[Rfam]
RNA sequence: GCUGGCAUAAUGAUGACUUUUUGCCGUUUACCCAACUGAGUUUUCUGAUGAGUAACUUGUAUCUAUCUGAGGUGCCAGC
Numbered sequence: 001g002c003u004g005g006c007a008u009a010a011u012g013a014u015g016a017c018u019u020u021u022u023g024c025c026g027u028u029u030a031c032c033c034a035a036c037u038g039a040g041u042u043u044u045c046u047g048a049u050g051a052g053u054a055a056c057u058u059g060u061a062u063c064u065a066u067c068u069g070a071g072g073u074g075c076c077a078g079c
Base pairs, nucleotide, nucleotide: 001079002078003077004076005075006074007073
A member of the RNA family "Small nucleolar RNA SNORD87" from Dromaius novaehollandiae, 79 nucleotides long. The pairing is the family consensus, mapped onto this sequence. Rfam classes the family as a C/D-box small nucleolar RNA. The family has 10 seed sequences and 539 matches in Rfam 15.1.